The family of this 111-nucleotide RNA from Tibeticola sediminis is "Glycine riboswitch aptamer". Gene Ontology term of the family: glycine biosynthetic process. NCBI's taxonomy places the organism under Bacteria, Pseudomonadota, Betaproteobacteria, Burkholderiales, Tibeticola.
[Rfam]
RNA sequence: GCGUCCCUCACUGGAGAGAGGCGGAUCGACUCCGCCCACCGAAGGGGCAAGCGGUGCGCCUAUCGUGGCGGCGCCGCCAAUCUCUCAGGUAAAGCGGACAGCGAGGGCAGC
Numbered sequence: 001g002c003g004u005c006c007c008u009c010a011c012u013g014g015a016g017a018g019a020g021g022c023g024g025a026u027c028g029a030c031u032c033c034g035c036c037c038a039c040c041g042a043a044g045g046g047g048c049a050a051g052c053g054g055u056g057c058g059c060c061u062a063u064c065g066u067g068g069c070g071g072c073g074c075c076g077c078c079a080a081u082c083u084c085u086c087a088g089g090u091a092a093a094g095c096g097g098a099c100a101g102c103g104a105g106g107g108c109a110g111c
Stems, first nucleotide, its partner, number of pairs: 006106004011101003020036004038090003041086002045084003051077007